[Rfam]
Nucleotides: 053
Base pairs, nucleotide, nucleotide: 002013003012004011024045025044026043027042028041029040030039031038032037
Number, partner (000 for none) and nucleotide at each position: 001000u002013g003012g004011u005000a006000g007000a008000u009000g010000c011004a012003c013002c014000c015000u016000g017000a018000u019000u020000a021000u022000u023000u024045g025044c026043c027042c028041u029040g030039g031038u032037c033000u034000u035000c036000g037032g038031a039030u040029c041028a042027g043026g044025g045024u046000u047000u048000u049000u050000u051000a052000u053000u
A member of the RNA family "Nitrogen stress-induced RNA 1" from Cyanobacteria bacterium FACHB-DQ100, 53 nucleotides long. The source organism's lineage runs through Bacteria, Bacillati and Cyanobacteriota. For this family Rfam cites "Heterocyst-specific transcription of NsiR1, a non-coding RNA encoded in a tandem array of direct repeats in cyanobacteria" (Ionescu et al., J Mol Biol, 2010).